[Rfam]
RNA: Mammalian CPEB3 ribozyme
Organism: Alligator sinensis
RNA sequence: AAAGGUCACAAGUUUGAGGCCAUAGUAGAAGUGUUCACAGUGUGGCCUGUCAGAUUCCAAUAAAUCUGUGAAUUUUGCU
Numbered sequence: 001a002a003a004g005g006u007c008a009c010a011a012g013u014u015u016g017a018g019g020c021c022a023u024a025g026u027a028g029a030a031g032u033g034u035u036c037a038c039a040g041u042g043u044g045g046c047c048u049g050u051c052a053g054a055u056u057c058c059a060a061u062a063a064a065u066c067u068g069u070g071a072a073u074u075u076u077g078c079u
Stems, first nucleotide, its partner, number of pairs: 018047004024079007031043003051068006